[Rfam]
RNA sequence: CUAUACACAACGUUGUGUUAGACAUUCAGCUCAAGCGGAGGAACCAGUUUCAUUGGGGCUAAUCUCGGUUUUUCUGAGAGAGACACCUUCCAGUCUUAGCCCGUCAGCUAACUCCGUCGGCAAUGGGAGGAGUA
Numbered sequence: 001c002u003a004u005a006c007a008c009a010a011c012g013u014u015g016u017g018u019u020a021g022a023c024a025u026u027c028a029g030c031u032c033a034a035g036c037g038g039a040g041g042a043a044c045c046a047g048u049u050u051c052a053u054u055g056g057g058g059c060u061a062a063u064c065u066c067g068g069u070u071u072u073u074c075u076g077a078g079a080g081a082g083a084c085a086c087c088u089u090c091c092a093g094u095c096u097u098a099g100c101c102c103g104u105c106a107g108c109u110a111a112c113u114c115c116g117u118c119g120g121c122a123a124u125g126g127g128a129g130g131a132g133u134a
Stems, first nucleotide, its partner, number of pairs: 035117006045055002056102003064078004081096004
RNA: c-di-AMP riboswitch aptamer (ydaO/yuaA leader)
Organism: Stenomitos frigidus